[Rfam]
RNA sequence: UUGCCUUAAACUAAUGAGUAAGGAAAACAAAGCGAACGGUGGGAACCGGUCGCAGCAUCCAUUUAAUGGUUUGCAUGAAUUUAUGGAGGGAUUAUAGGCUAGCCGAGUGUUGACGCUGCUUACUUUGCAGAACUCACUUGUGCAGGCCUCCC
Numbered sequence: 001u002u003g004c005c006u007u008a009a010a011c012u013a014a015u016g017a018g019u020a021a022g023g024a025a026a027a028c029a030a031a032g033c034g035a036a037c038g039g040u041g042g043g044a045a046c047c048g049g050u051c052g053c054a055g056c057a058u059c060c061a062u063u064u065a066a067u068g069g070u071u072u073g074c075a076u077g078a079a080u081u082u083a084u085g086g087a088g089g090g091a092u093u094a095u096a097g098g099c100u101a102g103c104c105g106a107g108u109g110u111u112g113a114c115g116c117u118g119c120u121u122a123c124u125u126u127g128c129a130g131a132a133c134u135c136a137c138u139u140g141u142g143c144a145g146g147c148c149u150c151c152c
Base pairs, nucleotide, nucleotide: 004023005022006021007020008019032053033052034051035050037048038047039046054070056068057067058066090152096149097148098147099146100145102143104140105139107137108136109135116130117129118128119127
Rfam assigns this 152-nucleotide RNA sequence from Lupinus angustifolius to the family "U12 minor spliceosomal RNA". Rfam classes the family as a spliceosomal small nuclear RNA. The source organism's lineage runs through Eukaryota, Viridiplantae, Spermatophyta, Magnoliopsida and Lupinus. The pairing is the family consensus, mapped onto this sequence.